[Rfam]
The record is a 107-nucleotide RNA sequence from Alteromonadaceae bacterium M269, which matches "Histidine operon leader" in Rfam. Taxonomically the source falls in Alteromonadaceae (Bacteria, Pseudomonadati, Pseudomonadota, Gammaproteobacteria). Pairs were carried over by alignment from the consensus structure, which is taken from published work. Rfam links the family to the GO term histidine biosynthetic process. The family's RNA type in Rfam is cis-regulatory leader. For this family Rfam cites "Attenuation in amino acid biosynthetic operons" (Kolter and Yanofsky, Annu Rev Genet, 1982). It scores 58 bits against the family's covariance model.
RNA sequence: ACAUCAUCACCACGUAGCAUAACCUUUCAGGUUCGUGCUGGAAGGUUAUUGGUAACCUUCCAGAGGACAAAAUAACAACCCUCGGAAGGCGACUUUCGGGGGUUUUU
Numbered sequence: 001a002c003a004u005c006a007u008c009a010c011c012a013c014g015u016a017g018c019a020u021a022a023c024c025u026u027u028c029a030g031g032u033u034c035g036u037g038c039u040g041g042a043a044g045g046u047u048a049u050u051g052g053u054a055a056c057c058u059u060c061c062a063g064a065g066g067a068c069a070a071a072a073u074a075a076c077a078a079c080c081c082u083c084g085g086a087a088g089g090c091g092a093c094u095u096u097c098g099g100g101g102g103u104u105u106u107u
Base pairs, nucleotide, nucleotide: 005037006036007035009032010031011030017028038063039062040061041060042059043058044057045056077104078103079102080101081100082099083098084097085096086095087094088093